Small nucleolar RNA SNORD127: a 75-nucleotide sequence from Aquarana catesbeiana. Rfam links the family to the GO terms nucleolus and RNA processing. On this family, see Yang et al., Nucleic Acids Res 2006: "snoSeeker: an advanced computational package for screening of guide and orphan snoRNA genes in the human genome".
RNA sequence: AGGCAAUAAUGAUGACAAAUAAGACCUCUGUAUGUCAUUUCUGUAGACAACAGUCCCUCUAAGCUGACAUUGCCU
Numbered sequence: 001a002g003g004c005a006a007u008a009a010u011g012a013u014g015a016c017a018a019a020u021a022a023g024a025c026c027u028c029u030g031u032a033u034g035u036c037a038u039u040u041c042u043g044u045a046g047a048c049a050a051c052a053g054u055c056c057c058u059c060u061a062a063g064c065u066g067a068c069a070u071u072g073c074c075u
Base pairs, nucleotide, nucleotide: 001075002074003073004072005071006070007069